RNA sequence: GCGCUUGUGGAAGCGAUGCGAAGGCAUGCAGGACCCCGGGGCGGUACCGGGCGGCUCCACCAAGGGCAGUUCAUGGCGCAAUGAACGGUUCGUCCGAUUGCCGCCGAAAAGCCGGGUUGCGACUGCGGGGCAGGCACAUGAAGAGGUGCUGACCUGCUGCUCGCGCAGGCGAUGGACUGUCUCUGAUGGGGCCGAAACAGGAUAGACUGGUGUCGUAGUUGAGUGGAGAGCGUCGGGUGGAAAUCCGUUACUGUUCCAUUGCAACAACUGCAAACUUCAACCGCGCACCAGCAGGUGCACUGGCGGCCUGA
Numbered sequence: 001g002c003g004c005u006u007g008u009g010g011a012a013g014c015g016a017u018g019c020g021a022a023g024g025c026a027u028g029c030a031g032g033a034c035c036c037c038g039g040g041g042c043g044g045u046a047c048c049g050g051g052c053g054g055c056u057c058c059a060c061c062a063a064g065g066g067c068a069g070u071u072c073a074u075g076g077c078g079c080a081a082u083g084a085a086c087g088g089u090u091c092g093u094c095c096g097a098u099u100g101c102c103g104c105c106g107a108a109a110a111g112c113c114g115g116g117u118u119g120c121g122a123c124u125g126c127g128g129g130g131c132a133g134g135c136a137c138a139u140g141a142a143g144a145g146g147u148g149c150u151g152a153c154c155u156g157c158u159g160c161u162c163g164c165g166c167a168g169g170c171g172a173u174g175g176a177c178u179g180u181c182u183c184u185g186a187u188g189g190g191g192c193c194g195a196a197a198c199a200g201g202a203u204a205g206a207c208u209g210g211u212g213u214c215g216u217a218g219u220u221g222a223g224u225g226g227a228g229a230g231c232g233u234c235g236g237g238u239g240g241a242a243a244u245c246c247g248u249u250a251c252u253g254u255u256c257c258a259u260u261g262c263a264a265c266a267a268c269u270g271c272a273a274a275c276u277u278c279a280a281c282c283g284c285g286c287a288c289c290a291g292c293a294g295g296u297g298c299a300c301u302g303g304c305g306g307c308c309u310g311a
Stems, first nucleotide, its partner, number of pairs: 001233005014221003025212003029209003035051005052194007234247004

The family of this 311-nucleotide RNA from Salipiger mucosus is "permuted transfer-messenger RNA". Taxonomically the source falls in Salipiger mucosus (Bacteria, Alphaproteobacteria, Rhodobacterales, Salipiger). About the family: Bacterial tmRNA, also known as 10Sa RNA or SsrA, is named for its dual tRNA and mRNA-like properties.